[Rfam]
RNA sequence: AGACGUAUAUAUACGUCCAGAAAAUGAAUCAUUUGACUGAGAGAGACGUUUAUAUACGUCCAGAAAAUUAAUGCAUUGGCUGAGAGAGACGUUUAUAUACGUCAGUGGCACACUUAAGUGCUUAGUGUGAAAGUAUAGUAUUAUUGAAUUCAAUACAUU
Numbered sequence: 001a002g003a004c005g006u007a008u009a010u011a012u013a014c015g016u017c018c019a020g021a022a023a024a025u026g027a028a029u030c031a032u033u034u035g036a037c038u039g040a041g042a043g044a045g046a047c048g049u050u051u052a053u054a055u056a057c058g059u060c061c062a063g064a065a066a067a068u069u070a071a072u073g074c075a076u077u078g079g080c081u082g083a084g085a086g087a088g089a090c091g092u093u094u095a096u097a098u099a100c101g102u103c104a105g106u107g108g109c110a111c112a113c114u115u116a117a118g119u120g121c122u123u124a125g126u127g128u129g130a131a132a133g134u135a136u137a138g139u140a141u142u143a144u145u146g147a148a149u150u151c152a153a154u155a156c157a158u159u
Stems, first nucleotide, its partner, number of pairs: 002017006026047001029044002032063002035060003048057002072087001075106006091100002118136002123155002126152002140149003
The record is a 159-nucleotide RNA from Trichonephila clavipes, which matches "STAXI RNA" in Rfam. It scores 41 bits against the family's covariance model. It is annotated as a small RNA.